RNA sequence: UUGCCUUAAACUAAUGAGUAAGGAAAACAAAGCGUACGGUGAGAGCCGUUCGCCGCGCCGCUAACUUUUCGUGCGCAUGAAUUUGUGGAGGGGCUGAAGGCUGGCCAAGCGUUGACGCUGCUUACUUUGCAGAACUCGCUUGCGCGGGCCUCCC
Numbered sequence: 001u002u003g004c005c006u007u008a009a010a011c012u013a014a015u016g017a018g019u020a021a022g023g024a025a026a027a028c029a030a031a032g033c034g035u036a037c038g039g040u041g042a043g044a045g046c047c048g049u050u051c052g053c054c055g056c057g058c059c060g061c062u063a064a065c066u067u068u069u070c071g072u073g074c075g076c077a078u079g080a081a082u083u084u085g086u087g088g089a090g091g092g093g094c095u096g097a098a099g100g101c102u103g104g105c106c107a108a109g110c111g112u113u114g115a116c117g118c119u120g121c122u123u124a125c126u127u128u129g130c131a132g133a134a135c136u137c138g139c140u141u142g143c144g145c146g147g148g149c150c151u152c153c154c
Stems, first nucleotide, its partner, number of pairs: 004023005032053003036049004054075005092154002098151005104145001106142002109139003118132004